The family of this 112-nucleotide RNA from Nakamurella multipartita is "TPP riboswitch aptamer (THI element)". On this family, see Warner et al., Chem Biol 2014: "Validating fragment-based drug discovery for biological RNAs: lead fragments bind and remodel the TPP riboswitch specifically". The base pairs follow the family's consensus structure, which is taken from published work.
[Rfam]
RNA sequence: UGGAAUCGACACGGGAGUCCGGUGCGCCGGGCUGAGAGCGGGACGCGCCAGUCCCGGACCGUCGUACCUGAUCCGGGUCAUGCCGGCGAAGGGACGUCCUGUCCGCUCUCCU
Numbered sequence: 001u002g003g004a005a006u007c008g009a010c011a012c013g014g015g016a017g018u019c020c021g022g023u024g025c026g027c028c029g030g031g032c033u034g035a036g037a038g039c040g041g042g043a044c045g046c047g048c049c050a051g052u053c054c055c056g057g058a059c060c061g062u063c064g065u066a067c068c069u070g071a072u073c074c075g076g077g078u079c080a081u082g083c084c085g086g087c088g089a090a091g092g093g094a095c096g097u098c099c100u101g102u103c104c105g106c107u108c109u110c111c112u
Stems, first nucleotide, its partner, number of pairs: 008098003011062004017032005039056005067092003073086004